[Rfam]
RNA sequence: CAACUAACAACACACCUCUCAGGGCCUUGAUCAAGACCCGGUGAACAAUUUUUGGAGACCCUAUUCUUCGGAGUAGGGUG
Numbered sequence: 001c002a003a004c005u006a007a008c009a010a011c012a013c014a015c016c017u018c019u020c021a022g023g024g025c026c027u028u029g030a031u032c033a034a035g036a037c038c039c040g041g042u043g044a045a046c047a048a049u050u051u052u053u054g055g056a057g058a059c060c061c062u063a064u065u066c067u068u069c070g071g072a073g074u075a076g077g078g079u080g
Base pairs, nucleotide, nucleotide: 022039023038024037026035027034028033058079059078060077061076062075063074064073065072066071
RNA: SmY spliceosomal RNA